[Rfam]
RNA sequence: GGUCAAUUUUCAUUAGUUCCUUGCUUCCUCUGGACGACCGGGCCAACUCUGGAAGCUGAAUAAUCCGUAAGGAGCAAUUCGAUG
Numbered sequence: 001g002g003u004c005a006a007u008u009u010u011c012a013u014u015a016g017u018u019c020c021u022u023g024c025u026u027c028c029u030c031u032g033g034a035c036g037a038c039c040g041g042g043c044c045a046a047c048u049c050u051g052g053a054a055g056c057u058g059a060a061u062a063a064u065c066c067g068u069a070a071g072g073a074g075c076a077a078u079u080c081g082a083u084g
Stems, first nucleotide, its partner, number of pairs: 016075007023056006031045003
This 84-nucleotide RNA sequence from Vibrio ostreae belongs to the Rfam family "RpsF leader". From the family's description: Conserved and widely distributed to many bacterial species RNA structure. On this family, see Fu et al., RNA 2014: "Bacterial RNA motif in the 5' UTR of rpsF interacts with an S6:S18 complex". The match comes from Rfam's covariance-model search (64 bits). It is annotated as a cis-regulatory leader. Its family is annotated with negative regulation of translation and protein binding in the Gene Ontology.